Small nucleolar RNA SNORA26: a 120-nucleotide RNA from Triplophysa rosa. The family's consensus secondary structure was predicted with RNAalifold. From the family's description: The snoRNA HBI-6 belong to the H/ACA family of snoRNAs, guiding the pseudouridylation of position U4522 if the 28S rRNA. HBI-6 is the human orthologue of mouse MBI-6 snoRNA. For this family Rfam cites "RNomics: an experimental approach that identifies 201 candidates for novel, small, non-messenger RNAs in mouse" (Huttenhofer et al., EMBO J, 2001). The family has 76 seed sequences and 1,943 matches in Rfam 15.1. The organism belongs to Triplophysa, within Eukaryota.
[Rfam]
RNA sequence: UCGCCCAUGUAAGACCUACUAUGUCUUAGAUGAGUAACACGGGGGGUAGAUGAAUUCUCUCAAAAACCUGAAGUACAGGCAUACUAUUCCUUGCUUCGGAUCCUGUCGGGAGACACAUAU
Numbered sequence: 001u002c003g004c005c006c007a008u009g010u011a012a013g014a015c016c017u018a019c020u021a022u023g024u025c026u027u028a029g030a031u032g033a034g035u036a037a038c039a040c041g042g043g044g045g046g047u048a049g050a051u052g053a054a055u056u057c058u059c060u061c062a063a064a065a066a067c068c069u070g071a072a073g074u075a076c077a078g079g080c081a082u083a084c085u086a087u088u089c090c091u092u093g094c095u096u097c098g099g100a101u102c103c104u105g106u107c108g109g110g111a112g113a114c115a116c117a118u119a120u
Stems, first nucleotide, its partner, number of pairs: 003047001004045003008041003016034002057112005068099007077091003081088001